[Rfam]
RNA: Archaeal signal recognition particle RNA
RNA sequence: UAAUAGGCUAGGUUGGGAGGUUAGUGGUCUCUUGUAAGCUCAAAUCCUCUAUACGGAGCAACCGAAGUUUUUGGAGAGGCGUAUUAAAUAUUUAUAGGCCUUUUCUUGUAAUGUCGAAGUUUCGCCCCGUAGGAUUAGCGGUUAUAGGAAUUCAACUGGAGGGUUGGAUUUAACUAUAUUAAUUAAUUGAAUGGGUCAGGUCUGGAAAGAAGCAGCUCUGUUUUAGACAACUGAUGUUUAUGGAUAAGCGGAAUGGAGUUAUGGGAUUAGAUAACCUGUUUUUAUGAGGUAUGUCCAUCCAAUUACACGCCGUUA
Numbered sequence: 001u002a003a004u005a006g007g008c009u010a011g012g013u014u015g016g017g018a019g020g021u022u023a024g025u026g027g028u029c030u031c032u033u034g035u036a037a038g039c040u041c042a043a044a045u046c047c048u049c050u051a052u053a054c055g056g057a058g059c060a061a062c063c064g065a066a067g068u069u070u071u072u073g074g075a076g077a078g079g080c081g082u083a084u085u086a087a088a089u090a091u092u093u094a095u096a097g098g099c100c101u102u103u104u105c106u107u108g109u110a111a112u113g114u115c116g117a118a119g120u121u122u123c124g125c126c127c128c129g130u131a132g133g134a135u136u137a138g139c140g141g142u143u144a145u146a147g148g149a150a151u152u153c154a155a156c157u158g159g160a161g162g163g164u165u166g167g168a169u170u171u172a173a174c175u176a177u178a179u180u181a182a183u184u185a186a187u188u189g190a191a192u193g194g195g196u197c198a199g200g201u202c203u204g205g206a207a208a209g210a211a212g213c214a215g216c217u218c219u220g221u222u223u224u225a226g227a228c229a230a231c232u233g234a235u236g237u238u239u240a241u242g243g244a245u246a247a248g249c250g251g252a253a254u255g256g257a258g259u260u261a262u263g264g265g266a267u268u269a270g271a272u273a274a275c276c277u278g279u280u281u282u283u284a285u286g287a288g289g290u291a292u293g294u295c296c297a298u299c300c301a302a303u304u305a306c307a308c309g310c311c312g313u314u315a
Base pairs, nucleotide, nucleotide: 001315002314003313004312006311007310008309011063012062013061014060015033016032017031018030019029020028021027038059039058040057041056067306068305071302072301073300074299075298078295079294080293081292084288088285089284090283094279095278096277097276098275100270101269104266105265106264107263108262109261110260111259112258114256119254120253121252122251123250124249125248127243128242129241130240131239132238133237134235135234136233137232138231140228141180143178144177145176146175147174148171149170150169151168152167153166154165155164156163157162183226184225185224186223193218194217195216196215201210202209203208